[Rfam]
RNA sequence: GACCCUAUCAAUAUUGCCUCUGCUUUUGUGAUCAGGGUAGUAGUGCAAUAUUGCUUAUAGGGUCUUUUCUUUU
Numbered sequence: 001g002a003c004c005c006u007a008u009c010a011a012u013a014u015u016g017c018c019u020c021u022g023c024u025u026u027u028g029u030g031a032u033c034a035g036g037g038u039a040g041u042a043g044u045g046c047a048a049u050a051u052u053g054c055u056u057a058u059a060g061g062g063u064c065u066u067u068u069c070u071u072u073u
Stems, first nucleotide, its partner, number of pairs: 001064008009053009020043004
RNA: mir-454 microRNA precursor family